This 100-nucleotide sequence from Solobacterium moorei belongs to the Rfam family "Purine riboswitch aptamer".
RNA sequence: UAAUACCUAUGUGCCACAUAUCGUAUAUGCUUUCGAAUUGGCGGAAGUGUCUCUACCCUGCUACCUUAAUGGCGGGACUACGGUUGUCUCUAUUCUUUUU
Dot-bracket structure: ...................((((((...(((((((......)))))))........(((((((......)))))))..))))))................